[Rfam]
MIR2617 microRNA precursor family: an 89-nucleotide RNA sequence from Medicago truncatula. The family has 3 seed sequences and 1,174 matches in Rfam 15.1. A search with the family's covariance model found it, with a score of 65 bits. Rfam links the family to the GO terms RISC complex and miRNA-mediated post-transcriptional gene silencing.

RNA sequence: UAGAAGUGUGACAUGCCCGUUUGGGAUUUACUCUGAUGAAUAUUUAAUUAUUAUUUAAUUGUUUUUGGGUAACGGGGUGUUUCAGUUCC
Numbered sequence: 001u002a003g004a005a006g007u008g009u010g011a012c013a014u015g016c017c018c019g020u021u022u023g024g025g026a027u028u029u030a031c032u033c034u035g036a037u038g039a040a041u042a043u044u045u046a047a048u049u050a051u052u053a054u055u056u057a058a059u060u061g062u063u064u065u066u067g068g069g070u071a072a073c074g075g076g077g078u079g080u081u082u083c084a085g086u087u088c089c
Base pairs, nucleotide, nucleotide: 003088004087005086007084008083010081011080012079013078014077016076017075018074019073020072021071
Dot-bracket structure: ..(((.((.(((((.((((((.................................................))))))))))).)).))).